[Rfam]
A member of the RNA family "Selenocysteine transfer RNA" from Desulfobacca acetoxidans, 91 nucleotides long. For this family Rfam cites "Eukaryotic selenocysteine tRNA has the 9/4 secondary structure" (Mizutani and Goto, FEBS Lett, 2000). Gene Ontology term of the family: triplet codon-amino acid adaptor activity.

RNA sequence: GGAAGUGCAAGGCUCACUGGUGGGGCCCCCGGACUUCAAAUCCGGUGUAUCGUCGCGAGGCGAUGGGUGGGUUCGAUUCCCAUGCACUUCC
Number, nucleotide and partner (000 for none) at each position: 001g091002g090003a089004a088005g087006u086007g085008c084009a083010a000011g000012g027013c000014u025015c024016a000017c022018u000019g000020g000021u000022g017023g000024g015025g014026c000027c012028c000029c045030c044031g043032g042033a041034c000035u000036u000037c000038a000039a000040a000041u033042c032043c031044g030045g029046u000047g000048u065049a064050u063051c062052g061053u000054c000055g000056c000057g000058a000059g000060g000061c052062g051063a050064u049065g048066g000067g000068u082069g081070g080071g079072u000073u000074c000075g000076a000077u000078u000079c071080c070081c069082a068083u009084g008085c007086a006087c005088u004089u003090c002091c001